The family of this 75-nucleotide RNA from Haemonchus placei is "mir-5928 microRNA precursor family".
RNA sequence: GGCCCAAAUUCGAAGUAGAGUAGAUCCGCAGGAUCAUCUGACUCUACUAAACUACUCUACUUUGAGUUUGAGCCC
Numbered sequence: 001g002g003c004c005c006a007a008a009u010u011c012g013a014a015g016u017a018g019a020g021u022a023g024a025u026c027c028g029c030a031g032g033a034u035c036a037u038c039u040g041a042c043u044c045u046a047c048u049a050a051a052c053u054a055c056u057c058u059a060c061u062u063u064g065a066g067u068u069u070g071a072g073c074c075c
Stems, first nucleotide, its partner, number of pairs: 001074003005070005011064013025050001028047001030045001032043001034041002
The organism belongs to Haemonchus, within Eukaryota.